A member of the RNA family "Small nucleolar RNA snR37" from Lachancea dasiensis, 396 nucleotides long. Clan: SNORA64 clan. Rfam links the family to the GO terms nucleolus and RNA processing.
RNA sequence: AUCAUCAGUAGUGGUUAAUACUAUCUCAAGAUAAUAUUAAUUACCAAAAUUUUAUAGGAACCGAAUGUUUCGAUGAUCCGUGUAUUUAAAGAUGGAGUUUGUGGCCACACGUACGCGAGUGCGUGUGGUGGGGCUCUGUCGAAGUUGAUACUGAUACGGGAUUCAUUGAUUCAAGUCAUAACCCAUAGCUGAGUGCACUCUGACCGCUCCCAAACAGGGCGGCAACAGAGUACAUUUCGUUUCCGGUUUCUUAGAUCAAAUCCACUGCUAUGGGGAGGUGCGCAUACGACCCGGUAAAAUGGGCCUGUGCGUAAGAGCAUGGCUUCCAGAGGAACGUGUAGUGCGUUCUGAGAGUUUGGAAUUGUCUGUUGUGCCUCUCUCCAUGCCAGAACAUGU
Numbered sequence: 001a002u003c004a005u006c007a008g009u010a011g012u013g014g015u016u017a018a019u020a021c022u023a024u025c026u027c028a029a030g031a032u033a034a035u036a037u038u039a040a041u042u043a044c045c046a047a048a049a050u051u052u053u054a055u056a057g058g059a060a061c062c063g064a065a066u067g068u069u070u071c072g073a074u075g076a077u078c079c080g081u082g083u084a085u086u087u088a089a090a091g092a093u094g095g096a097g098u099u100u101g102u103g104g105c106c107a108c109a110c111g112u113a114c115g116c117g118a119g120u121g122c123g124u125g126u127g128g129u130g131g132g133g134c135u136c137u138g139u140c141g142a143a144g145u146u147g148a149u150a151c152u153g154a155u156a157c158g159g160g161a162u163u164c165a166u167u168g169a170u171u172c173a174a175g176u177c178a179u180a181a182c183c184c185a186u187a188g189c190u191g192a193g194u195g196c197a198c199u200c201u202g203a204c205c206g207c208u209c210c211c212a213a214a215c216a217g218g219g220c221g222g223c224a225a226c227a228g229a230g231u232a233c234a235u236u237u238c239g240u241u242u243c244c245g246g247u248u249u250c251u252u253a254g255a256u257c258a259a260a261u262c263c264a265c266u267g268c269u270a271u272g273g274g275g276a277g278g279u280g281c282g283c284a285u286a287c288g289a290c291c292c293g294g295u296a297a298a299a300u301g302g303g304c305c306u307g308u309g310c311g312u313a314a315g316a317g318c319a320u321g322g323c324u325u326c327c328a329g330a331g332g333a334a335c336g337u338g339u340a341g342u343g344c345g346u347u348c349u350g351a352g353a354g355u356u357u358g359g360a361a362u363u364g365u366c367u368g369u370u371g372u373g374c375c376u377c378u379c380u381c382c383a384u385g386c387c388a389g390a391a392c393a394u395g396u
Base pairs, nucleotide, nucleotide: 008050009049012046013045014041015040016039017038018037019036020035022033023032024031025030056251057250058249059248060247061246062245067172070169071168072167073166074165075164076163079160081158082157083156084155085154086153091140092139094137095136096135097134098133099132100131106125107124108123110121111120112119143152144151145150191237192236193235194234195233197231200228201227202226204222205221206220207219208218265389266388267387269385271383272382273381274380275379276378277377278376279313280312281311282310283309284308285307286306315375319372320371321370322369323368325360326359327358328357329356330355331349332348333347334346335345336344337343
Dot-bracket structure: .......((..(((((((((.((((....)))).)))))))...))..)).....(((((((....(..(((((((..(.((((((....((.(((((((.....(((.(((......))).))).....))))))).))..(((....))))))))).)..)))))))..)..................(((((.(..(((.(((((.........)))))...)))..).))))).......))))))).............(((.(.((((((((((((((((...................)))))))).(...(((((.(((((((((((((.....))))))).....)))))).......)))))..))))))))).).))).......